The family of this 190-nucleotide RNA from Anabarilius grahami is "U2 spliceosomal RNA". The base pairs follow the family's consensus structure, which is taken from published work. On this family, see Zwieb, Nucleic Acids Res 1997: "The uRNA database".
RNA sequence: AUAUUUUUGCAUGCGACAAUCUUGUUCUGUAAUAAAGUAGUAUCUGUUCUUAUCAGUUUAAUAUCUGAUACGUUCCCUAUCUGGGGAUUACAUAUUAAAUUGAUUUUUGGCUCACGGAACCGGGGCUUGCUCCGUCCACUUUAGGGGCAGUCGUGGCCUAAUGGGUAGAGAGUCGGACUUGUAACCCAAA
Numbered sequence: 001a002u003a004u005u006u007u008u009g010c011a012u013g014c015g016a017c018a019a020u021c022u023u024g025u026u027c028u029g030u031a032a033u034a035a036a037g038u039a040g041u042a043u044c045u046g047u048u049c050u051u052a053u054c055a056g057u058u059u060a061a062u063a064u065c066u067g068a069u070a071c072g073u074u075c076c077c078u079a080u081c082u083g084g085g086g087a088u089u090a091c092a093u094a095u096u097a098a099a100u101u102g103a104u105u106u107u108u109g110g111c112u113c114a115c116g117g118a119a120c121c122g123g124g125g126c127u128u129g130c131u132c133c134g135u136c137c138a139c140u141u142u143a144g145g146g147g148c149a150g151u152c153g154u155g156g157c158c159u160a161a162u163g164g165g166u167a168g169a170g171a172g173u174c175g176g177a178c179u180u181g182u183a184a185c186c187c188a189a190a
Stems, first nucleotide, its partner, number of pairs: 007032003015026004051070006072088006116137003122133004140190003144186002147182004